The family of this 84-nucleotide RNA sequence from Acipenser ruthenus is "mir-301 microRNA precursor family". The organism belongs to Acipenser, within Eukaryota. Rfam links the family to the GO terms RISC complex and miRNA-mediated post-transcriptional gene silencing. A reference for the family is Houbaviy et al. (2003), "Embryonic stem cell-specific MicroRNAs", Dev Cell. A search with the family's covariance model found it, with a score of 75 bits.
[Rfam]
RNA sequence: UGGUGUCCGGUGCUCUGACAGUGUUGCACUACUGUUCCAGAUACUGAAGCAGUGCAAUAGUAUUGUCAAAGCAUCUGCCCCAGC
Numbered sequence: 001u002g003g004u005g006u007c008c009g010g011u012g013c014u015c016u017g018a019c020a021g022u023g024u025u026g027c028a029c030u031a032c033u034g035u036u037c038c039a040g041a042u043a044c045u046g047a048a049g050c051a052g053u054g055c056a057a058u059a060g061u062a063u064u065g066u067c068a069a070a071g072c073a074u075c076u077g078c079c080c081c082a083g084c
Base pairs, nucleotide, nucleotide: 002081003080007077009075010074011073012072013071014070016068017067018066019065023058024057025056026055027054028053029052030051034042